Description:
The family of this 74-nucleotide sequence from a Bacillota bacterium is "Group II catalytic intron D1-D4-1". Group II introns are found in rRNA, tRNA and mRNA of organelles in fungi, plants and protists, and also in mRNA in bacteria. The base pairs follow the family's consensus structure.

RNA sequence: GAACUCGUACAGCAAUGUGCGACUGAGCGGGCAGGAGUCAGCAGAGGCCAUAGUACCCGCCUGCGGGGAAGGGC
Numbered sequence: 001g002a003a004c005u006c007g008u009a010c011a012g013c014a015a016u017g018u019g020c021g022a023c024u025g026a027g028c029g030g031g032c033a034g035g036a037g038u039c040a041g042c043a044g045a046g047g048c049c050a051u052a053g054u055a056c057c058c059g060c061c062u063g064c065g066g067g068g069a070a071g072g073g074c
Stems, first nucleotide, its partner, number of pairs: 002024001005022007038045002047074003056067004
Dot-bracket structure: .(..(((((((....))))))).).............((....)).(((......((((....))))....)))